[Rfam]
RNA: Nitrogen stress-induced RNA 1
Organism: Tolypothrix bouteillei
RNA sequence: UGGUAGAUGCACCCUGAUAACUGACUCCCCUGGCUAGCUUUUAGCUAGUAGGGGUCUUUUUU
Numbered sequence: 001u002g003g004u005a006g007a008u009g010c011a012c013c014c015u016g017a018u019a020a021c022u023g024a025c026u027c028c029c030c031u032g033g034c035u036a037g038c039u040u041u042u043a044g045c046u047a048g049u050a051g052g053g054g055u056c057u058u059u060u061u062u
Stems, first nucleotide, its partner, number of pairs: 002013003027054006034048004